TPP riboswitch aptamer (THI element): a 112-nucleotide RNA from Xylanibacillus composti.
Vitamin B(1) in its active form thiamin pyrophosphate (TPP) is an essential coenzyme that is synthesised by coupling of pyrimidine and thiazole moieties in bacteria.
Pairs were carried over by alignment from the consensus structure, which is taken from published work.
A search with the family's covariance model found it, with a score of 55 bits.
NCBI's taxonomy places the organism under Bacteria, Bacillati, Caryophanales, Paenibacillaceae, Xylanibacillus.
[Rfam]
RNA sequence: GAAUAGGAAAAUGGGGGCUUGCGGAAGCAGGCUGAGAGUACGACUAGGCCGUCGUUGACCAUCUGAACCUGUUUGGGUAAUGCCAGCGUAGGGAAUGUUUGCGAAUGAGCAG
Numbered sequence: 001g002a003a004u005a006g007g008a009a010a011a012u013g014g015g016g017g018c019u020u021g022c023g024g025a026a027g028c029a030g031g032c033u034g035a036g037a038g039u040a041c042g043a044c045u046a047g048g049c050c051g052u053c054g055u056u057g058a059c060c061a062u063c064u065g066a067a068c069c070u071g072u073u074u075g076g077g078u079a080a081u082g083c084c085a086g087c088g089u090a091g092g093g094a095a096u097g098u099u100u101g102c103g104a105a106u107g108a109g110c111a112g
Stems, first nucleotide, its partner, number of pairs: 006100003010096001011062004016056001017032005040055004068092004073086004